RNA: terC RNA
RNA sequence: CAUCGGCGACCGGGCCCCUCUGGCAGGACGCAUAAGCGACUGCGAUGUCGGAGCCGAUGC
Numbered sequence: 001c002a003u004c005g006g007c008g009a010c011c012g013g014g015c016c017c018c019u020c021u022g023g024c025a026g027g028a029c030g031c032a033u034a035a036g037c038g039a040c041u042g043c044g045a046u047g048u049c050g051g052a053g054c055c056g057a058u059g060c
Base pairs, nucleotide, nucleotide: 006054007053010051011050012049013048023043024042025041026040029038030037031036